The record is an 83-nucleotide RNA sequence from Phainopepla nitens, which matches "mir-301 microRNA precursor family" in Rfam. The base pairs follow the family's consensus structure, which was predicted with WAR.
RNA sequence: UGCUAACGAGUGCUCUGACUUUAUUGCACUACUGUACAUACAGAGAGCAGUGCAAUAGUAUUGUCAAAGCAUCUGAGAGCAGA
Dot-bracket structure: .(((..((.(((((.((((...((((((((...(......).......))))))))......)))).))))).))..)))...
Numbered sequence: 001u002g003c004u005a006a007c008g009a010g011u012g013c014u015c016u017g018a019c020u021u022u023a024u025u026g027c028a029c030u031a032c033u034g035u036a037c038a039u040a041c042a043g044a045g046a047g048c049a050g051u052g053c054a055a056u057a058g059u060a061u062u063g064u065c066a067a068a069g070c071a072u073c074u075g076a077g078a079g080c081a082g083a
Stems, first nucleotide, its partner, number of pairs: 002080003007075002010072005016066004023056008034041001
Overview:
A reference for the family is Houbaviy et al. (2003), "Embryonic stem cell-specific MicroRNAs", Dev Cell. A search with the family's covariance model found it, with a score of 93 bits.